[Rfam]
RNA sequence: UGGCGGCCGUUGAGACGAGAUCUCCCCAUACCACAUAGCGGCAGCUCGGCUCCGUGCACGCGUAUGGGGAGAUCUUGCCUCAACAGCCGCUC
Numbered sequence: 001u002g003g004c005g006g007c008c009g010u011u012g013a014g015a016c017g018a019g020a021u022c023u024c025c026c027c028a029u030a031c032c033a034c035a036u037a038g039c040g041g042c043a044g045c046u047c048g049g050c051u052c053c054g055u056g057c058a059c060g061c062g063u064a065u066g067g068g069g070a071g072a073u074c075u076u077g078c079c080u081c082a083a084c085a086g087c088c089g090c091u092c
Stems, first nucleotide, its partner, number of pairs: 002091002005088003009084006016077007024069004029064003038055004043051002
This 92-nucleotide RNA sequence from Triticum urartu belongs to the Rfam family "MIR9772 microRNA precursor family". Gene Ontology terms of the family: miRNA-mediated post-transcriptional gene silencing and RISC complex. Pairs were carried over by alignment from the consensus structure, which was predicted with RNAalifold. The match comes from Rfam's covariance-model search (98 bits).